[Rfam]
RNA sequence: CUGAGGCGGGAACCGAGCUGAUUUCUCUACUGGUGAUAAGUCCGAUCAUAGUGUUUAUCACCGGGAGUAAAUCUGCUCUGGUCCCGUCUCGGGAU
Numbered sequence: 001c002u003g004a005g006g007c008g009g010g011a012a013c014c015g016a017g018c019u020g021a022u023u024u025c026u027c028u029a030c031u032g033g034u035g036a037u038a039a040g041u042c043c044g045a046u047c048a049u050a051g052u053g054u055u056u057a058u059c060a061c062c063g064g065g066a067g068u069a070a071a072u073c074u075g076c077u078c079u080g081g082u083c084c085c086g087u088c089u090c091g092g093g094a095u
Stems, first nucleotide, its partner, number of pairs: 009085002012082004016077003020073005025067004030063001033061006
Annotation:
The record is a 95-nucleotide RNA sequence from Caenorhabditis brenneri, which matches "mir-36 microRNA precursor family" in Rfam. Clan: mir-36 clan. The family has 46 seed sequences and 199 matches in Rfam 15.1. The source organism's lineage runs through Eukaryota, Protostomia, Rhabditina, Rhabditidae and Caenorhabditis. Rfam links the family to the GO terms RISC complex and miRNA-mediated post-transcriptional gene silencing. Pairs were carried over by alignment from the consensus structure, which was predicted with WAR.